[Rfam]
Nucleotides: 053
Base pairs, nucleotide, nucleotide: 006047007046009044010043011042012041022036023035024034025033026032
Number, partner (000 for none) and nucleotide at each position: 001000u002000g003000c004000g005000u006047a007046g008000g009044c010043c011042g012041g013000g014000c015000c016000c017000c018000u019000c020000u021000g022036a023035c024034g025033u026032g027000u028000u029000u030000c031000g032026c033025a034024c035023g036022u037000g038000a039000u040000g041012u042011c043010g044009g045000a046007c047006u048000g049000c050000a051000u052000u053000u
A member of the RNA family "terC RNA" from Allopontixanthobacter sediminis, 53 nucleotides long. Pairs were carried over by alignment from the consensus structure, which is taken from published work.